Background
Rfam assigns this 54-nucleotide RNA sequence from Bos taurus to the family "mir-1281 microRNA precursor family". Gene Ontology terms of the family: RISC complex and miRNA-mediated post-transcriptional gene silencing.
RNA sequence: AGGGGGCACCGGGAGGAGGUGAGUGUCUCUUGUCGCCUCCUCCUCUCCCCGCUU
Numbered sequence: 001a002g003g004g005g006g007c008a009c010c011g012g013g014a015g016g017a018g019g020u021g022a023g024u025g026u027c028u029c030u031u032g033u034c035g036c037c038u039c040c041u042c043c044u045c046u047c048c049c050c051g052c053u054u
Base pairs, nucleotide, nucleotide: 001053002052004050005049006048011044012043013042014041015040016039017038018037019036020035021034022033